[Rfam]
transfer-messenger RNA: a 366-nucleotide RNA sequence from Caldicellulosiruptor saccharolyticus.
It is one of the family's seed sequences.
Pairs were carried over by alignment from the consensus structure, which is taken from published work.
Its Rfam clan is "tRNA clan".
By type it is a non-coding RNA gene.
Rfam's curators write: Bacterial tmRNA, also known as 10Sa RNA or SsrA, is named for its dual tRNA and mRNA-like properties.
RNA sequence: GGGCGUGUUUUGGAAUUCGACGGGGGCAGUCGGAUUCCAAAUAGCGGGUAGUGGUUUUCUCGGUACCACUAUAAAAAACCGAGAAGAAAAAUAACUGCAGACAAAGCUGAACUCGCUUUAGCUGCAUAAGAUAAGCAGCUAACGUCCGCCGGAGGUGCCCACGGCCUCCGAGUCGGGCGCCAACCCACGUGGGGCACCGAAAGUAAGGUCGCCUGAGCCUUACUUUUGGGUCAAAUCUCAGGCUGGGGAAGAAAAAGCCUGUCAGUGGGCGUUUUCUUCCCGAGAAUUUAAGUACACUGACUGCACCCGGAGAAGUUUGGAGUUCGAUGCCUUCGGACGGGGGUUCAAAUCCCCCCGCCUCCACCA
Numbered sequence: 001g002g003g004c005g006u007g008u009u010u011u012g013g014a015a016u017u018c019g020a021c022g023g024g025g026g027c028a029g030u031c032g033g034a035u036u037c038c039a040a041a042u043a044g045c046g047g048g049u050a051g052u053g054g055u056u057u058u059c060u061c062g063g064u065a066c067c068a069c070u071a072u073a074a075a076a077a078a079c080c081g082a083g084a085a086g087a088a089a090a091a092u093a094a095c096u097g098c099a100g101a102c103a104a105a106g107c108u109g110a111a112c113u114c115g116c117u118u119u120a121g122c123u124g125c126a127u128a129a130g131a132u133a134a135g136c137a138g139c140u141a142a143c144g145u146c147c148g149c150c151g152g153a154g155g156u157g158c159c160c161a162c163g164g165c166c167u168c169c170g171a172g173u174c175g176g177g178c179g180c181c182a183a184c185c186c187a188c189g190u191g192g193g194g195c196a197c198c199g200a201a202a203g204u205a206a207g208g209u210c211g212c213c214u215g216a217g218c219c220u221u222a223c224u225u226u227u228g229g230g231u232c233a234a235a236u237c238u239c240a241g242g243c244u245g246g247g248g249a250a251g252a253a254a255a256a257g258c259c260u261g262u263c264a265g266u267g268g269g270c271g272u273u274u275u276c277u278u279c280c281c282g283a284g285a286a287u288u289u290a291a292g293u294a295c296a297c298u299g300a301c302u303g304c305a306c307c308c309g310g311a312g313a314a315g316u317u318u319g320g321a322g323u324u325c326g327a328u329g330c331c332u333u334c335g336g337a338c339g340g341g342g343g344u345u346c347a348a349a350u351c352c353c354c355c356c357g358c359c360u361c362c363a364c365c366a
Stems, first nucleotide, its partner, number of pairs: 001360005021335008030326001032325011045309005050070005058084007118142007143179006150170001152168004159192005196231003200227003207244004246281010258268001261301007339355005